[Rfam]
The family of this 282-nucleotide sequence from Ornithorhynchus anatinus is "Small Cajal body specific RNA 6". U88 is small Cajal body specific RNA (scaRNA). scaRNAs are a novel class of small nuclear RNAs which localise to the Cajal bodies. U88 is found associated with both fibrillarin and Gar1p and co-localises with coilin in Cajal bodies. A search with the family's covariance model found it, with a score of 142 bits. The base pairs follow the family's consensus structure, which is taken from published work. By type it is a small Cajal body RNA. The source organism's lineage runs through Eukaryota, Gnathostomata, Tetrapoda, Amniota and Ornithorhynchus. A reference for the family is Huttenhofer et al. (2001), "RNomics: an experimental approach that identifies 201 candidates for novel, small, non-messenger RNAs in mouse", EMBO J.

RNA sequence: GGUCAGUGAUGAUUAGUAAAAGGUCUGACUGCACGGAGAAAUCACAGUCCCUUUAUUGCUCGCAUCUCCCAGCAGCUCCUCUCUUGCCCCAUCAUGCUCAAGUUAUGUCGUGAUCGGGUUCUGGGGCUGCUGACAGUUUGUGAUGCACUCACUUUGGGUUAUCCCAAGAGGAAUGGAGAGACAACCCUCCCCGAGCAUCCAACAAAACUAAUUACGAAGGAGGUUUUAAUGGGGCAAUGUGGACUGUGAUCGUGCCUGAUUUUAAGUUUUCAAGCUGAGACC
Numbered sequence: 001g002g003u004c005a006g007u008g009a010u011g012a013u014u015a016g017u018a019a020a021a022g023g024u025c026u027g028a029c030u031g032c033a034c035g036g037a038g039a040a041a042u043c044a045c046a047g048u049c050c051c052u053u054u055a056u057u058g059c060u061c062g063c064a065u066c067u068c069c070c071a072g073c074a075g076c077u078c079c080u081c082u083c084u085u086g087c088c089c090c091a092u093c094a095u096g097c098u099c100a101a102g103u104u105a106u107g108u109c110g111u112g113a114u115c116g117g118g119u120u121c122u123g124g125g126g127c128u129g130c131u132g133a134c135a136g137u138u139u140g141u142g143a144u145g146c147a148c149u150c151a152c153u154u155u156g157g158g159u160u161a162u163c164c165c166a167a168g169a170g171g172a173a174u175g176g177a178g179a180g181a182c183a184a185c186c187c188u189c190c191c192c193g194a195g196c197a198u199c200c201a202a203c204a205a206a207a208c209u210a211a212u213u214a215c216g217a218a219g220g221a222g223g224u225u226u227u228a229a230u231g232g233g234g235c236a237a238u239g240u241g242g243a244c245u246g247u248g249a250u251c252g253u254g255c256c257u258g259a260u261u262u263u264a265a266g267u268u269u270u271c272a273a274g275c276u277g278a279g280a281c282c
Stems, first nucleotide, its partner, number of pairs: 001282004038263006047235005053229002066222004070132007088118003091114006097107001140200001142199005156187005162181002165178001